Rfam assigns this 60-nucleotide RNA from Sarcophilus harrisii to the family "mir-7386 microRNA precursor family". Lineage of the source: Eukaryota > Vertebrata > Teleostomi > Metatheria > Sarcophilus.

[Rfam]
RNA sequence: ACUUGGGUAAGGCGCUCUAUUUUGUGUAUUUUGCCAAAAUAAUUUACCUUUUCCUUGGAG
Numbered sequence: 001a002c003u004u005g006g007g008u009a010a011g012g013c014g015c016u017c018u019a020u021u022u023u024g025u026g027u028a029u030u031u032u033g034c035c036a037a038a039a040u041a042a043u044u045u046a047c048c049u050u051u052u053c054c055u056u057g058g059a060g
Base pairs, nucleotide, nucleotide: 002057005054006053007052009050010049011048012047018041019040020039021038022037023036024035026034
A search with the family's covariance model found it, with a score of 59 bits.